[Rfam]
RNA sequence: GUUUCCCUAGCUGGAGAGAGGCCGUCUUUGCAACGAAGGCGGUCCACCGAAGGAGCAAGUCGCGGCACACCUUGCGAUGAAUCUCUCAGGUAAAGCGGACAGCAGGGCAAUA
Numbered sequence: 001g002u003u004u005c006c007c008u009a010g011c012u013g014g015a016g017a018g019a020g021g022c023c024g025u026c027u028u029u030g031c032a033a034c035g036a037a038g039g040c041g042g043u044c045c046a047c048c049g050a051a052g053g054a055g056c057a058a059g060u061c062g063c064g065g066c067a068c069a070c071c072u073u074g075c076g077a078u079g080a081a082u083c084u085c086u087c088a089g090g091u092a093a094a095g096c097g098g099a100c101a102g103c104a105g106g107g108c109a110a111u112a
Base pairs, nucleotide, nucleotide: 006107007106008105010103011102012101013100020044021043022042023041024040025039026038027037028036046091047090048089049087050086053085054084055083059078060077061076062075063074064073065072
Notes
The family of this 112-nucleotide RNA sequence from Diaphorobacter aerolatus is "Glycine riboswitch aptamer". Its Rfam clan is "Glycine riboswitch clan". The source organism's lineage runs through Bacteria, Pseudomonadati, Betaproteobacteria, Burkholderiales and Diaphorobacter.